[Rfam]
RNA sequence: CGCAUAUUUUGCGGCGGCGGAACUCGACCGCCCGUUCAAGCGAUGAUUGCCUUUGUCGACAAUCACUGUGGGGUCUUUGGUGUCGGGCCGAUCUGCCGGGUUCUGGGGAUCGCACCU
Numbered sequence: 001c002g003c004a005u006a007u008u009u010u011g012c013g014g015c016g017g018c019g020g021a022a023c024u025c026g027a028c029c030g031c032c033c034g035u036u037c038a039a040g041c042g043a044u045g046a047u048u049g050c051c052u053u054u055g056u057c058g059a060c061a062a063u064c065a066c067u068g069u070g071g072g073g074u075c076u077u078u079g080g081u082g083u084c085g086g087g088c089c090g091a092u093c094u095g096c097c098g099g100g101u102u103c104u105g106g107g108g109a110u111c112g113c114a115c116c117u
Base pairs, nucleotide, nucleotide: 016032017031018030019029020028079116080115081114082113089112090111092109093108094107096105098103
This 117-nucleotide sequence from Primorskyibacter sedentarius belongs to the Rfam family "ALIL pseudoknot". The organism belongs to Primorskyibacter, within Bacteria. It scores 99 bits against the family's covariance model.